[Rfam]
RNA sequence: GGGUAAUUAGCUCAGUUGGUAGAGUGCCUCGUUUACACCGAGAGAGUCAGCGGUUCAAGUCCGUUAUUACCCA
Numbered sequence: 001g002g003g004u005a006a007u008u009a010g011c012u013c014a015g016u017u018g019g020u021a022g023a024g025u026g027c028c029u030c031g032u033u034u035a036c037a038c039c040g041a042g043a044g045a046g047u048c049a050g051c052g053g054u055u056c057a058a059g060u061c062c063g064u065u066a067u068u069a070c071c072c073a
Stems, first nucleotide, its partner, number of pairs: 001072007010025004028042004049065005
tRNA: a 73-nucleotide sequence. Pairs were carried over by alignment from the consensus structure, which is taken from published work. Rfam links the family to the GO term triplet codon-amino acid adaptor activity.